This 91-nucleotide sequence from Bacillus aerolatus belongs to the Rfam family "Glycine riboswitch aptamer". The source organism's lineage runs through Bacteria, Bacillati, Bacillota, Bacilli and Bacillus. This family represents the bacterial glycine riboswitch. The base pairs follow the family's consensus structure.

RNA sequence: AUGAAGGCGAGGGGAGAGACUGUGUAUACAGCGCCGAAGGAGCAAACAAGCUUUUUGUGAAUCUCUCAGGCAAAAGAACUCUUGCUGGACG
Numbered sequence: 001a002u003g004a005a006g007g008c009g010a011g012g013g014g015a016g017a018g019a020c021u022g023u024g025u026a027u028a029c030a031g032c033g034c035c036g037a038a039g040g041a042g043c044a045a046a047c048a049a050g051c052u053u054u055u056u057g058u059g060a061a062u063c064u065c066u067c068a069g070g071c072a073a074a075a076g077a078a079c080u081c082u083u084g085c086u087g088g089a090c091g
Stems, first nucleotide, its partner, number of pairs: 006086008020031004033071003036067002040065003046058002